[Rfam]
Notes: The family of this 404-nucleotide sequence from Aerosakkonema funiforme is "Bacterial RNase P class A".
RNA sequence: AGAGUAGGCGCAGGCGGUUGCGGAUUGGCGAAAGCCAGUCUGAGGAAAGUCCGGGCUCCCGAAAGACCAGACUUGCUGGGUAACGCCCAGUGCGAGCGAUCGCGAGGAUAGUGCCACAGAAAGAUACCGCCAACCAAUUUUGGAUUUUAGAUUCAAAUCUAAAAUCCAAAAUUGGUUGGUAAGGGUGCAAAGGUGCGGUAAGAGCGCACCAGCAGCGUCGAGAGGCGCUGGCUCGGUAAACCCCGGUUGGGAGCAAGGUCGGAGGAACUACGGUUGGUCUUUUACCGGUUCCGUUGCUUAGGUACCGCUAGAGGCGUCUGGUAACAGGCGUCCCAGAUAGAUAACUGCCUUCUGUGCUGCACGUCAGUCAGAAAACAGAACCCGGCUUAUGUCCGACUCUCUUC
Numbered sequence: 001a002g003a004g005u006a007g008g009c010g011c012a013g014g015c016g017g018u019u020g021c022g023g024a025u026u027g028g029c030g031a032a033a034g035c036c037a038g039u040c041u042g043a044g045g046a047a048a049g050u051c052c053g054g055g056c057u058c059c060c061g062a063a064a065g066a067c068c069a070g071a072c073u074u075g076c077u078g079g080g081u082a083a084c085g086c087c088c089a090g091u092g093c094g095a096g097c098g099a100u101c102g103c104g105a106g107g108a109u110a111g112u113g114c115c116a117c118a119g120a121a122a123g124a125u126a127c128c129g130c131c132a133a134c135c136a137a138u139u140u141u142g143g144a145u146u147u148u149a150g151a152u153u154c155a156a157a158u159c160u161a162a163a164a165u166c167c168a169a170a171a172u173u174g175g176u177u178g179g180u181a182a183g184g185g186u187g188c189a190a191a192g193g194u195g196c197g198g199u200a201a202g203a204g205c206g207c208a209c210c211a212g213c214a215g216c217g218u219c220g221a222g223a224g225g226c227g228c229u230g231g232c233u234c235g236g237u238a239a240a241c242c243c244c245g246g247u248u249g250g251g252a253g254c255a256a257g258g259u260c261g262g263a264g265g266a267a268c269u270a271c272g273g274u275u276g277g278u279c280u281u282u283u284a285c286c287g288g289u290u291c292c293g294u295u296g297c298u299u300a301g302g303u304a305c306c307g308c309u310a311g312a313g314g315c316g317u318c319u320g321g322u323a324a325c326a327g328g329c330g331u332c333c334c335a336g337a338u339a340g341a342u343a344a345c346u347g348c349c350u351u352c353u354g355u356g357c358u359g360c361a362c363g364u365c366a367g368u369c370a371g372a373a374a375a376c377a378g379a380a381c382c383c384g385g386c387u388u389a390u391g392u393c394c395g396a397c398u399c400u401c402u403u404c
Stems, first nucleotide, its partner, number of pairs: 001400005007394002010392003013349007021042009047388003051385005056253004065283002070248003074245002076090005091105001092103004106243002111241002113237003127184002129180024192210006212232001213230007257306003263298002266295003274288005313332008